[Rfam]
RNA sequence: UGUACGAACAGGCAAAACCAUUGAAAAGUGGUGACGCAAAGCUAUAGGGGCUUCAUUGAUUACAAUAUGCCAGCCAGUUCCCGAA
Numbered sequence: 001u002g003u004a005c006g007a008a009c010a011g012g013c014a015a016a017a018c019c020a021u022u023g024a025a026a027a028g029u030g031g032u033g034a035c036g037c038a039a040a041g042c043u044a045u046a047g048g049g050g051c052u053u054c055a056u057u058g059a060u061u062a063c064a065a066u067a068u069g070c071c072a073g074c075c076a077g078u079u080c081c082c083g084a085a
Stems, first nucleotide, its partner, number of pairs: 012037002017032006040079004047075002049071003056065003